[Rfam]
Small nucleolar RNA snoR53Y: an 84-nucleotide sequence from Populus trichocarpa. On this family, see Brown et al., RNA 2001: "Multiple snoRNA gene clusters from Arabidopsis". Its Rfam clan is "snoR53 clan".
RNA sequence: GUUCCCAGUGAUGCUUAAAUAUGAACCAUGCUAAUGCUGAUCAUUGGAUGACUGAAACUCUUUCUCAAUCUUGCUGAGGGAACA
Number, nucleotide and partner (000 for none) at each position: 001g083002u082003u081004c080005c079006c000007a000008g000009u000010g000011a000012u000013g000014c000015u000016u000017a000018a000019a000020u000021a000022u000023g000024a000025a000026c000027c000028a000029u000030g000031c000032u000033a000034a000035u000036g000037c000038u000039g000040a000041u000042c000043a000044u000045u000046g000047g000048a000049u000050g000051a000052c000053u000054g000055a000056a000057a000058c000059u000060c000061u000062u000063u000064c000065u000066c000067a000068a000069u000070c000071u000072u000073g000074c000075u000076g000077a000078g000079g005080g004081a003082a002083c001084a000
About this RNA: Taxonomically the source falls in Populus (Eukaryota, Viridiplantae, Streptophyta, Streptophytina).